The family of this 160-nucleotide RNA from Microtus ochrogaster is "U1 spliceosomal RNA". Rfam links the family to the GO terms mRNA 5'-splice site recognition, U1 snRNP and pre-mRNA 5'-splice site binding. The literature on the family includes a 1997 paper in Nucleic Acids Res by Zwieb, "The uRNA database". NCBI's taxonomy places the organism under Eukaryota, Boreoeutheria, Euarchontoglires, Muroidea, Microtus. A search with the family's covariance model found it, with a score of 78 bits. It is annotated as a spliceosomal small nuclear RNA.
RNA sequence: AUACCUACCUGGCAGGGAAGACAGCAGGACCACAAAGGUGGUUUCCCAGGUGAGGCUUAUCCAUUGCACUCCAGACGCGCAGACCUUCAGUUUCCCCAAAUGAGGGAAAUUGCAUAAUUUGUGGUGGUGGUGGUGGGGAAUGCAUUUGUGCUCUCCCCUG
Numbered sequence: 001a002u003a004c005c006u007a008c009c010u011g012g013c014a015g016g017g018a019a020g021a022c023a024g025c026a027g028g029a030c031c032a033c034a035a036a037g038g039u040g041g042u043u044u045c046c047c048a049g050g051u052g053a054g055g056c057u058u059a060u061c062c063a064u065u066g067c068a069c070u071c072c073a074g075a076c077g078c079g080c081a082g083a084c085c086u087u088c089a090g091u092u093u094c095c096c097c098a099a100a101u102g103a104g105g106g107a108a109a110u111u112g113c114a115u116a117a118u119u120u121g122u123g124g125u126g127g128u129g130g131u132g133g134u135g136g137g138g139a140a141u142g143c144a145u146u147u148g149u150g151c152u153c154u155c156c157c158c159u160g
Base pairs, nucleotide, nucleotide: 012113013112014111015110016046017045018044019043023042025040026039048087049086050085052084055080056079058077060075061074091108092107093106095105096104135158136157137156138155139154142151143150144149